Shown here is a 62-nucleotide sequence from Neisseria lactamica, a member of the family "porB RNA".
RNA sequence: CAUUUAUAGUUUCAAACAAGGAAUCGCCGAAAACGUCGGCGGUAAAUGCAAAGCUAAGCGGC
Numbered sequence: 001c002a003u004u005u006a007u008a009g010u011u012u013c014a015a016a017c018a019a020g021g022a023a024u025c026g027c028c029g030a031a032a033a034c035g036u037c038g039g040c041g042g043u044a045a046a047u048g049c050a051a052a053g054c055u056a057a058g059c060g061g062c
Stems, first nucleotide, its partner, number of pairs: 023043007

Background:
Lineage of the source: Bacteria > Pseudomonadota > Neisseriales > Neisseria > Neisseria lactamica.